[Rfam]
RNA sequence: CAGUGCACUCAUCCAUAAAGUAGGAAACACUACACCCUCCAGUGCUGUUAGUAGUGCUUUCUACUUUAUGGGUGACUGCACUGU
Numbered sequence: 001c002a003g004u005g006c007a008c009u010c011a012u013c014c015a016u017a018a019a020g021u022a023g024g025a026a027a028c029a030c031u032a033c034a035c036c037c038u039c040c041a042g043u044g045c046u047g048u049u050a051g052u053a054g055u056g057c058u059u060u061c062u063a064c065u066u067u068a069u070g071g072g073u074g075a076c077u078g079c080a081c082u083g084u
Stems, first nucleotide, its partner, number of pairs: 014070010026058001028056006